[Rfam]
The family of this 139-nucleotide sequence from Myotis lucifugus is "Small nucleolar RNA SNORA48". The base pairs follow the family's consensus structure, which was predicted with RNAalifold. Rfam 15.1 lists 2,109 matches to the family in 150 species. Its family is annotated with RNA processing and nucleolus in the Gene Ontology. About the family: The snoRNA ACA 48 has been identified to guide pseudouridylation of the residue U3797 in the 28S rRNA subunit.

RNA sequence: UGUCUCUGACUGGGUAGAGUUACACCUGGUUUGGUGGUACUUGUCUCAUAUCGACAGGGACAAAGGAACUCCUUGUUUAUCCUAGCUUGGCUUUUGGUCUGUGCCUGUGCCUGUGCCUGGUUCAUGUCCUGACACAUAG
Numbered sequence: 001u002g003u004c005u006c007u008g009a010c011u012g013g014g015u016a017g018a019g020u021u022a023c024a025c026c027u028g029g030u031u032u033g034g035u036g037g038u039a040c041u042u043g044u045c046u047c048a049u050a051u052c053g054a055c056a057g058g059g060a061c062a063a064a065g066g067a068a069c070u071c072c073u074u075g076u077u078u079a080u081c082c083u084a085g086c087u088u089g090g091c092u093u094u095u096g097g098u099c100u101g102u103g104c105c106u107g108u109g110c111c112u113g114u115g116c117c118u119g120g121u122u123c124a125u126g127u128c129c130u131g132a133c134a135c136a137u138a139g
Base pairs, nucleotide, nucleotide: 001062002061003060004059005058006057007056008055011053012052013051017047018046019045024038025037026036074134075133076132077131079130089128090127091126095124096123097122099120100119101118103116104115